The family of this 136-nucleotide sequence from Castor canadensis is "Small nucleolar RNA SNORA43". The match comes from Rfam's covariance-model search (94 bits). The family's consensus secondary structure was predicted with RNAfold. Rfam links the family to the GO terms RNA processing and nucleolus. From the family's description: ACA43 is a member of the H/ACA class of snoRNA that guide the sites of modification of uridines to pseudouridines.
RNA sequence: GCUGUCCUGAACCUACCAGCACCAAAGGCAUGGCCACUCUGCUGUGCCCGUGACCUGGGGCGAAAAGCAAGUGCUAUUUCUACACUCAGCAUUAAGAAGCCAGUGAGCACUAAGAAUGGUUUAUAGCCUGACAUUU
Numbered sequence: 001g002c003u004g005u006c007c008u009g010a011a012c013c014u015a016c017c018a019g020c021a022c023c024a025a026a027g028g029c030a031u032g033g034c035c036a037c038u039c040u041g042c043u044g045u046g047c048c049c050g051u052g053a054c055c056u057g058g059g060g061c062g063a064a065a066a067g068c069a070a071g072u073g074c075u076a077u078u079u080c081u082a083c084a085c086u087c088a089g090c091a092u093u094a095a096g097a098a099g100c101c102a103g104u105g106a107g108c109a110c111u112a113a114g115a116a117u118g119g120u121u122u123a124u125a126g127c128c129u130g131a132c133a134u135u136u
Base pairs, nucleotide, nucleotide: 003062004061005060006059007058008057009056024051027048073127074126080119081118082117085114086113092107093106095104